[Rfam]
RNA sequence: GUUUCUAUCUUUGGUUAUCUAGCUGUAUGAGUGUAAAUAAGCCGUCAUAAAGCUAGAUAACCGAAAGUAGGAAUCA
Numbered sequence: 001g002u003u004u005c006u007a008u009c010u011u012u013g014g015u016u017a018u019c020u021a022g023c024u025g026u027a028u029g030a031g032u033g034u035a036a037a038u039a040a041g042c043c044g045u046c047a048u049a050a051a052g053c054u055a056g057a058u059a060a061c062c063g064a065a066a067g068u069a070g071g072a073a074u075c076a
Base pairs, nucleotide, nucleotide: 001074002073003072005070006069007068008067010065011064012063013062014061015060016059017058018057019056020055021054022053023052024051026049027048028047029046030045

The record is a 76-nucleotide sequence from Xenopus tropicalis, which matches "mir-9/mir-79 microRNA precursor family" in Rfam. A reference for the family is Lagos-Quintana et al. (2001), "Identification of novel genes coding for small expressed RNAs", Science. Rfam's curators put it in the seed alignment. NCBI's taxonomy places the organism under Eukaryota, Bilateria, Sarcopterygii, Tetrapoda, Silurana. Its family is annotated with miRNA-mediated post-transcriptional gene silencing and RISC complex in the Gene Ontology.